[Rfam]
RNA sequence: CGGGCAGUAUCAAUCUUGAACUGAACCUUUUGUAAUUACAUUAUUGGGGUUCUGCCUUGAUCCAGAAUAUGGACAGGGACAGAGGG
Number, nucleotide and partner (000 for none) at each position: 001c000002g027003g026004g000005c023006a022007g021008u020009a000010u019011c018012a000013a000014u000015c000016u000017u000018g011019a010020a008021c007022u006023g005024a000025a000026c003027c002028u000029u000030u000031u000032g000033u000034a000035a000036u000037u000038a000039c000040a000041u000042u000043a000044u000045u000046g000047g000048g000049g000050u000051u000052c082053u081054g080055c078056c077057u076058u075059g074060a000061u073062c072063c071064a000065g000066a000067a000068u000069a000070u000071g063072g062073a061074c059075a058076g057077g056078g055079a000080c054081a053082g052083a000084g000085g000086g000

Shown here is an 86-nucleotide sequence from Mangrovibacillus cuniculi, a member of the family "pan motif". The base pairs follow the family's consensus structure, which is taken from published work.